[Rfam]
RNA: PyrR binding site
RNA sequence: UUAACCUUUAAUUAAGUCCAGAGAGACUUGCAAGGUUGCCAUAGGAUACGUGUAUGUGUUUUUAAUGCUACAUGUGUACCUCUUUGCAACGUUGCAAAGAGGUUUUUUUAU
Numbered sequence: 001u002u003a004a005c006c007u008u009u010a011a012u013u014a015a016g017u018c019c020a021g022a023g024a025g026a027c028u029u030g031c032a033a034g035g036u037u038g039c040c041a042u043a044g045g046a047u048a049c050g051u052g053u054a055u056g057u058g059u060u061u062u063u064a065a066u067g068c069u070a071c072a073u074g075u076g077u078a079c080c081u082c083u084u085u086g087c088a089a090c091g092u093u094g095c096a097a098a099g100a101g102g103u104u105u106u107u108u109u110a111u
Base pairs, nucleotide, nucleotide: 003037004036005035006034007033008032013030014029015028016027017026018025038069040067041066042065044063045062046061048059049058050057051056074107076105078103079102080101081100082099083098084097085096086095087094